[Rfam]
RNA: Glycine riboswitch aptamer
Organism: Bacillus sp. 7884-1
RNA sequence: GGAGCAGCUUCUGGAGAGACCGCUGGAAUUUAAGCGGCGCCGAAGGGUUCACAAUCUCAGGCAAAAGGACAGAAGAGUACUG
Numbered sequence: 001g002g003a004g005c006a007g008c009u010u011c012u013g014g015a016g017a018g019a020c021c022g023c024u025g026g027a028a029u030u031u032a033a034g035c036g037g038c039g040c041c042g043a044a045g046g047g048u049u050c051a052c053a054a055u056c057u058c059a060g061g062c063a064a065a066a067g068g069a070c071a072g073a074a075g076a077g078u079a080c081u082g
Stems, first nucleotide, its partner, number of pairs: 008075006020037004039062003042058002046056003